[Rfam]
U1A polyadenylation inhibition element (PIE): a 76-nucleotide RNA from Oryzias melastigma. Lineage of the source: Eukaryota > Metazoa > Deuterostomia > Euteleostomi > Oryzias. Gene Ontology term of the family: regulation of mRNA polyadenylation. By type it is a cis-regulatory element. Rfam's curators write: This family represents the U1A polyadenylation inhibition element (PIE). PIE is a regulatory RNA which is responsible for the regulation of the length of the polyA tail of the U1A pre-mRNA. The PIE is located in the U1A mRNA 3' UTR. PIE adopts a U-shaped structure, with binding sites for a single U1A protein at each bend and when complexed with the two proteins it blocks activity of poly(A) polymerase (PAP), and inhibits its activity. The base pairs follow the family's consensus structure, which is taken from published work. The match comes from Rfam's covariance-model search (62 bits).

RNA sequence: UUUGAAAGCAUUGCACCCAGGGUCUGACUUGUCAGACAUUGUACCUGGAGCUUGUUUUUUUUGUUUAUGUAAUAGU
Numbered sequence: 001u002u003u004g005a006a007a008g009c010a011u012u013g014c015a016c017c018c019a020g021g022g023u024c025u026g027a028c029u030u031g032u033c034a035g036a037c038a039u040u041g042u043a044c045c046u047g048g049a050g051c052u053u054g055u056u057u058u059u060u061u062u063g064u065u066u067a068u069g070u071a072a073u074a075g076u
Base pairs, nucleotide, nucleotide: 006053007052008051009050017048018047019046020045022037023036024035025034026033